[Rfam]
RNA sequence: UUUGAAUCUGUAAUGUUUUUUUUUUAUAAACUGCGUUAUCUUCCUGAAGCUCCUAAUCAAGGGGUCAAAAGAUGAAAAAUUGCCUACUGAGAUCCUAA
Numbered sequence: 001u002u003u004g005a006a007u008c009u010g011u012a013a014u015g016u017u018u019u020u021u022u023u024u025u026a027u028a029a030a031c032u033g034c035g036u037u038a039u040c041u042u043c044c045u046g047a048a049g050c051u052c053c054u055a056a057u058c059a060a061g062g063g064g065u066c067a068a069a070a071g072a073u074g075a076a077a078a079a080u081u082g083c084c085u086a087c088u089g090a091g092a093u094c095c096u097a098a
Stems, first nucleotide, its partner, number of pairs: 001098002004095001006093004
RNA: Small nucleolar RNA snoR27
Organism: Kingdonia uniflora